[Rfam]
RNA sequence: AUCGCGUAGGGUGAUGGAGUCCGCCUACGACCGCCCUCAGGGCUGAUGACUCCUACAGGUAG
Number, nucleotide and partner (000 for none) at each position: 001a000002u000003c000004g000005c000006g000007u000008a000009g000010g025011g024012u023013g022014a000015u000016g053017g052018a051019g050020u049021c048022c013023g012024c011025c010026u000027a000028c000029g000030a000031c000032c000033g043034c042035c041036c000037u000038c000039a000040g000041g035042g034043c033044u000045g000046a000047u000048g021049a020050c019051u018052c017053c016054u000055a000056c000057a000058g000059g000060u000061a000062g000
The family of this 62-nucleotide RNA from Rhodanobacter thiooxydans is "Fluoride riboswitch aptamer (crcB RNA motif)". The match comes from Rfam's covariance-model search (48 bits). The base pairs follow the family's consensus structure, which is taken from published work. The literature on the family includes a 2012 paper in Science by Baker et al., "Widespread genetic switches and toxicity resistance proteins for fluoride". Lineage of the source: Bacteria > Pseudomonadota > Gammaproteobacteria > Lysobacterales > Rhodanobacter.